[Rfam]
RNA sequence: UGUAAUAGGGCUUUCAUGGGUGGUAGCUCACCCCUUUUUUGAGAAAGGGGGUGAUACGAUGACAGUAUUCGAAGCAUUGAUCCUGAUGAUCACGUUCGCAACCUUAGUUGUAGCUAUACUGUCAGAACAAAAAAAGUAACCACCCGAUGAAUGCCUAGCCGCAUUUUGGUUGGUUACUUUUCUGACCUAAAUAUGUGAGCUGCCCCCUUGAAGGGCUUUUACACACGAGACCGUUCAUGUUAGAGCAUGGACG
Number, nucleotide and partner (000 for none) at each position: 001u223002g222003u000004a220005a219006u000007a217008g000009g201010g200011c199012u198013u197014u000015c000016a148017u147018g145019g144020g143021u000022g140023g000024u138025a137026g000027c000028u054029c053030a052031c000032c050033c049034c048035u047036u046037u000038u000039u000040u000041g000042a000043g000044a000045a000046a036047g035048g034049g033050g032051g000052u030053g029054a028055u000056a000057c000058g000059a000060u000061g123062a122063c121064a120065g119066u118067a117068u000069u000070c000071g000072a000073a000074g000075c088076a087077u000078u000079g000080a000081u000082c000083c000084u000085g000086a000087u076088g075089a000090u000091c000092a000093c000094g000095u000096u000097c000098g114099c113100a000101a000102c000103c000104u000105u000106a000107g000108u000109u000110g000111u000112a000113g099114c098115u000116a000117u067118a066119c065120u064121g063122u062123c061124a000125g000126a000127a000128c000129a000130a000131a000132a000133a000134a000135a000136g000137u025138a024139a000140c022141c000142a000143c020144c019145c018146g000147a017148u016149g000150a000151a000152u000153g000154c000155c000156u000157a000158g000159c000160c000161g000162c000163a000164u000165u000166u000167u000168g000169g000170u000171u000172g000173g000174u000175u000176a000177c000178u000179u000180u000181u000182c000183u000184g000185a000186c000187c000188u000189a000190a000191a000192u000193a000194u000195g000196u000197g013198a012199g011200c010201u009202g000203c000204c215205c214206c213207c000208u000209u000210g000211a000212a000213g206214g205215g204216c000217u007218u000219u005220u004221a000222c002223a001224c000225a000226c000227g000228a000229g000230a000231c000232c253233g252234u251235u250236c249237a248238u247239g246240u245241u000242a000243g000244a000245g240246c239247a238248u237249g236250g235251a234252c233253g232

This 253-nucleotide sequence from Gracilibacillus thailandensis belongs to the Rfam family "BsrG". NCBI's taxonomy places the organism under Bacteria, Bacillati, Bacillota, Bacilli, Gracilibacillus. It scores 76 bits against the family's covariance model. On this family, see Saito et al., Gene 2008: "Novel small RNA-encoding genes in the intergenic regions of Bacillus subtilis". bsrE, bsrG and bsrH pair through intermolecular interactions with antisense sRNAs. By type it is a small RNA. The base pairs follow the family's consensus structure, which was predicted with WAR.